Rfam assigns this 71-nucleotide RNA from Myotis davidii to the family "mir-9242 microRNA precursor family". Rfam links the family to the GO terms RISC complex and miRNA-mediated post-transcriptional gene silencing.

[Rfam]
RNA sequence: GGCCUCCCUCUGUGGGGUGAUCAAUGGUGAAGUCUCCUUUGCCCCCAUUGAUUGCCCCGCAGAGGGUGGCU
Dot-bracket structure: ((((.((((((((((((((((((((((.(.............).)))))))))))))))))))))).))))